[Rfam]
RNA: Small nucleolar RNA U54
RNA sequence: AGCUCUAUGAUUAUUGAGCCUAAUAUGGGCAAUAUACGCUAUUCCGAUUUGCAGAAAUGAGCAGAAAUUUUGAGAGAAAGAAUGGGAGCU
Numbered sequence: 001a002g003c004u005c006u007a008u009g010a011u012u013a014u015u016g017a018g019c020c021u022a023a024u025a026u027g028g029g030c031a032a033u034a035u036a037c038g039c040u041a042u043u044c045c046g047a048u049u050u051g052c053a054g055a056a057a058u059g060a061g062c063a064g065a066a067a068u069u070u071u072g073a074g075a076g077a078a079a080g081a082a083u084g085g086g087a088g089c090u
Base pairs, nucleotide, nucleotide: 001090002089003088004087005086